Rfam assigns this 50-nucleotide RNA sequence from Inhella inkyongensis to the family "nhaA-I RNA". The base pairs follow the family's consensus structure, which is taken from published work. Rfam classes the family as a riboswitch.

RNA sequence: GGGUGUUGCCCUUCAGGGCAACAGGUUCACGCGCUGGUCGGGCCGCCACG
Numbered sequence: 001g002g003g004u005g006u007u008g009c010c011c012u013u014c015a016g017g018g019c020a021a022c023a024g025g026u027u028c029a030c031g032c033g034c035u036g037g038u039c040g041g042g043c044c045g046c047c048a049c050g
Base pairs, nucleotide, nucleotide: 005022006021007020008019009018010017011016032050033049035048036047037046038045